[Rfam]
RNA: Bacterial RNase P class A
Organism: Herbiconiux oxytropis
RNA sequence: AUGGGCCGGCAGACGGUCGCGUCGUCGUGCUCAGGCACGAUGCCGAGGAACGUCCGGGCUCCACAGAGCAGGGCGGUGGGUAACACCCACCCGGGGCAACCCGCGAGACAGUGCCACAGAGAACAGACCGCCACGGGCUCCGGCCCGCGGUAAGGGUGAAACGGUGGUGUAAGAGACCACCAGAGGCCGCGGUGACGCGGUCGGCUCGGUAAACCUCGCCCGGAGCAAGGUCAACAGGAUGUGCCAACGCUGCUCGCUCAGCAUCCGGGUAGACCGCUCGAGGGCUGCGGUGACGCAGCUCCUAGAUAGAUGGCCGUCACGGGGCUUCGCGCCUCGGACAGAACCCGGCGUACCGCCGGCCCAUUCAC
Number, nucleotide and partner (000 for none) at each position: 001a364002u363003g362004g361005g360006c359007c358008g357009g356010c355011a000012g318013a317014c316015g315016g314017u313018c312019g000020c045021g044022u000023c042024g041025u040026c039027g038028u037029g000030c000031u000032c000033a000034g000035g000036c000037a028038c027039g026040a025041u024042g023043c000044c021045g020046a000047g000048g000049a000050a351051c350052g349053u000054c348055c347056g346057g345058g344059c225060u224061c223062c222063a000064c000065a000066g255067a254068g253069c252070a000071g221072g220073g219074c218075g217076g090077u089078g088079g087080g086081u000082a000083a000084c000085a000086c080087c079088c078089a077090c076091c105092c103093g102094g101095g100096g000097c000098a000099a000100c095101c094102c093103g092104c000105g091106a216107g215108a000109c000110a000111g214112u213113g210114c209115c208116a000117c000118a000119g000120a000121g000122a000123a000124c000125a000126g000127a000128c155129c154130g151131c150132c149133a000134c147135g146136g145137g144138c143139u000140c000141c000142g000143g138144c137145c136146c135147g134148c000149g132150g131151u130152a000153a000154g129155g128156g000157u000158g000159a000160a000161a000162c000163g181164g180165u179166g178167g177168u176169g000170u000171a000172a000173g000174a000175g000176a168177c167178c166179a165180c164181c163182a000183g205184a000185g202186g201187c200188c199189g198190c197191g196192g000193u000194g000195a000196c191197g190198c189199g188200g187201u186202c185203g000204g000205c183206u000207c000208g115209g114210u113211a000212a000213a112214c111215c107216u106217c075218g074219c073220c072221c071222g062223g061224a060225g059226c000227a000228a000229g275230g274231u273232c272233a000234a000235c000236a000237g266238g265239a264240u263241g262242u261243g000244c000245c000246a000247a000248c000249g257250c256251u000252g069253c068254u067255c066256g250257c249258u000259c000260a000261g242262c241263a240264u239265c238266c237267g000268g000269g000270u000271a000272g232273a231274c230275c229276g000277c000278u000279c000280g000281a000282g301283g300284g299285c298286u297287g296288c295289g294290g000291u000292g000293a000294c289295g288296c287297a286298g285299c284300u283301c282302c000303u000304a000305g000306a000307u000308a000309g000310a000311u000312g018313g017314c016315c015316g014317u013318c012319a000320c000321g000322g000323g000324g000325c000326u000327u000328c000329g000330c000331g000332c000333c000334u000335c000336g000337g000338a000339c000340a000341g000342a000343a000344c058345c057346c056347g055348g054349c052350g051351u050352a000353c000354c000355g010356c009357c008358g007359g006360c005361c004362c003363a002364u001365u000366c000367a000368c000